This 84-nucleotide sequence from Sphenodon punctatus belongs to the Rfam family "mir-130 microRNA precursor family". Its family is annotated with RISC complex and miRNA-mediated post-transcriptional gene silencing in the Gene Ontology. Lineage of the source: Eukaryota > Chordata > Gnathostomata > Euteleostomi > Sphenodon. The base pairs follow the family's consensus structure, which was predicted with PFOLD. For this family Rfam cites "Identification of tissue-specific microRNAs from mouse" (Lagos-Quintana et al., Curr Biol, 2002).

[Rfam]
RNA sequence: CAGGUUGGCUGGCACUCUUUCCCUGUUGCACUACUGUCAAACUUGCAGCUAGCAGUGCAAUAAUGAAAGGGCGUCAGUCUGCUG
Numbered sequence: 001c002a003g004g005u006u007g008g009c010u011g012g013c014a015c016u017c018u019u020u021c022c023c024u025g026u027u028g029c030a031c032u033a034c035u036g037u038c039a040a041a042c043u044u045g046c047a048g049c050u051a052g053c054a055g056u057g058c059a060a061u062a063a064u065g066a067a068a069g070g071g072c073g074u075c076a077g078u079c080u081g082c083u084g
Stems, first nucleotide, its partner, number of pairs: 001084003007079006015071007024062009